RNA sequence: GCCGAGCUUGGUAACUCUAGCUUGUAACCCAAAUGGGGGCAACAAAGUGAUGGAACAUGGUAUGUGCCACGCUCGGUUGGGCUGGUGGAUGCAUUAUGCAGGCCUGCCCGCUCCAAGUUAGGAGUCGAGCAAUGGGACUUGGGCGAAGGCCCGGGUCUCCCUGUUCCUAAAGUGGAGGGCACAGCGUGAGGCUGGCUUCACAGAGCAGCGAUUACCUCCCUCUCCUCACAGUGGAGGGAUAACAGGCCUCUGCUCCCUCAGCCCACUAUAACCGGGUGUGCCAUACUCCUGAACCAUCUCUUUU
Dot-bracket structure: ((((((((.((....)).)))))....(((....))))))...((((.(((((..((.((.(((.((.(((((((((((((((((.(...(........(((((((.((.(((((.((.(((((..(((((..(((((((((((....)))))))))))..)))))(....).(((((....(.(((....(((......)))....))).)..)))))..))))).))..)))))))....)))))))...)..).))))))).....)))))))))))))))..)).))..))))).)))).
A member of the RNA family "Plant signal recognition particle RNA" from Cajanus cajan, 304 nucleotides long.
For this family Rfam cites "Towards the structure of the mammalian signal recognition particle" (Wild et al., Curr Opin Struct Biol, 2002).
The family's consensus secondary structure is taken from published work.